[Rfam]
Nucleotides: 108
Stems, first nucleotide, its partner, number of pairs: 006096002012059003017032005039054005064089004070083004
Number, partner (000 for none) and nucleotide at each position: 001000a002000a003000a004000c005000u006096u007095a008000a009000a010000c011000a012059g013058g014057g015000g016000a017032g018031c019030u020029c021028a022000u023000a024000g025000u026000a027000a028021u029020g030019g031018g032017c033000u034000g035000a036000g037000a038000g039054g040053a041052a042051g043050c044000u045000g046000g047000u048000c049000u050043g051042c052041u053040u054039c055000g056000a057014c058013c059012c060000a061000u062000a063000a064089c065088c066087u067086g068000a069000u070083u071082u072081g073080g074000a075000u076000a077000a078000u079000g080073c081072c082071a083070a084000c085000g086067u087066a088065g089064g090000g091000a092000u093000c094000a095007u096006a097000a098000a099000g100000c101000a102000g103000a104000g105000u106000a107000u108000a